[Rfam]
This 54-nucleotide RNA sequence belongs to the Rfam family "Glutamine riboswitch aptamer (glnA leader)". Pairs were carried over by alignment from the consensus structure, which is taken from published work. The sequence is in the family's curated seed alignment.
RNA sequence: UACGUUCAUCCUUAACAGGACGGAAGUAGGCACAUAAUGCCGAAGGAACGCAUU
Numbered sequence: 001u002a003c004g005u006u007c008a009u010c011c012u013u014a015a016c017a018g019g020a021c022g023g024a025a026g027u028a029g030g031c032a033c034a035u036a037a038u039g040c041c042g043a044a045g046g047a048a049c050g051c052a053u054u
Base pairs, nucleotide, nucleotide: 003050004049005048006047007046009020010019011018012017023051029041030040031039